The family of this 88-nucleotide RNA sequence from Rhinopithecus roxellana is "Y RNA". NCBI's taxonomy places the organism under Eukaryota, Teleostomi, Simiiformes, Cercopithecidae, Rhinopithecus. Rfam describes the family as follows. Y RNAs are components of the Ro ribonucleoprotein particle (Ro RNP), in association with Ro60 and La proteins. The Y RNAs and Ro60 and La proteins are well conserved, but the function of the Ro RNP is not known. In humans the RNA component can be one of four small RNAs -- hY1, hY3, hY4 and hY5. These small RNAs are predicted to fold into a conserved secondary structure containing three stem structures. The largest of the four, hY1, contains an additional hairpin. This family includes a significant number of annotated pseudogenes and the model is expected to discriminate poorly between real and Y RNA related pseudogenes. It is annotated as a non-coding RNA gene. The base pairs follow the family's consensus structure, which is taken from published work. It scores 47 bits against the family's covariance model.
Nucleotides: 088
Base pairs, nucleotide, nucleotide: 001084002083003082004081005080006079007078008077010076011075014072016067017066019064029049030048032046033045
Number, partner (000 for none) and nucleotide at each position: 001084g002083g003082c004081u005080g006079g007078u008077c009000u010076g011075a012000g013000u014072g015000c016067a017066g018000c019064g020000u021000u022000u023000a024000c025000c026000a027000c028000u029049a030048u031000u032046g033045a034000u035000u036000a037000c038000a039000g040000a041000u042000u043000u044000c045033u046032c047000u048030g049029u050000u051000g052000c053000u054000u055000c056000u057000c058000c059000a060000c061000c062000c063000c064019c065000a066017c067016u068000g069000c070000u071000u072014c073000a074000c075011u076010u077008g078007a079006c080005u081004a082003g083002u084001c085000u086000u087000a088000a